A member of the RNA family "c-di-GMP-I riboswitch aptamer" from Paenalicyclobacillus mengziensis, 88 nucleotides long. GEMM was predicted in a large-scale screen for bacterial structured RNA regulatory elements. The family's consensus secondary structure is taken from published work.

[Rfam]
RNA sequence: GAUCAACAAGAGCAAACCUCGAGAAAUCGGGGGACGCAAAGCCAUGGGUCUACGGCUGCUCGGCAGCUAGGACAGCCAGGUUGCUGAU
Numbered sequence: 001g002a003u004c005a006a007c008a009a010g011a012g013c014a015a016a017c018c019u020c021g022a023g024a025a026a027u028c029g030g031g032g033g034a035c036g037c038a039a040a041g042c043c044a045u046g047g048g049u050c051u052a053c054g055g056c057u058g059c060u061c062g063g064c065a066g067c068u069a070g071g072a073c074a075g076c077c078a079g080g081u082u083g084c085u086g087a088u
Base pairs, nucleotide, nucleotide: 012037013036017032018031019030020029021028022027040082041081042080043079045078046077047076048073049072050071055067056066057065058064
A reference for the family is Weinberg et al. (2007), "Identification of 22 candidate structured RNAs in bacteria using the CMfinder comparative genomics pipeline", Nucleic Acids Res. A search with the family's covariance model found it, with a score of 78 bits.